[Rfam]
RNA sequence: CCUGAGUCUAGAGAAAACAUUUCCGCGCACACACCAGACUAUUGAAACCCGUGUGUAGAAAUGCUUCUGCUACAUUCGUU
Numbered sequence: 001c002c003u004g005a006g007u008c009u010a011g012a013g014a015a016a017a018c019a020u021u022u023c024c025g026c027g028c029a030c031a032c033a034c035c036a037g038a039c040u041a042u043u044g045a046a047a048c049c050c051g052u053g054u055g056u057a058g059a060a061a062u063g064c065u066u067c068u069g070c071u072a073c074a075u076u077c078g079u080u
Stems, first nucleotide, its partner, number of pairs: 004077004009072003013068001015066002018063006025056005032051001
RNA: mir-147 microRNA precursor family